[Rfam]
RNA sequence: AUUAAAGUUAGUGAUGGAGAUCCACUAGAACCGCCUAAAUUUUUGGCUAAUGACUCCUACCUUGAC
Numbered sequence: 001a002u003u004a005a006a007g008u009u010a011g012u013g014a015u016g017g018a019g020a021u022c023c024a025c026u027a028g029a030a031c032c033g034c035c036u037a038a039a040u041u042u043u044u045g046g047c048u049a050a051u052g053a054c055u056c057c058u059a060c061c062u063u064g065a066c
Stems, first nucleotide, its partner, number of pairs: 010026004016057004021052001033047003
RNA: Fluoride riboswitch aptamer (crcB RNA motif)
Organism: Anaerobranca californiensis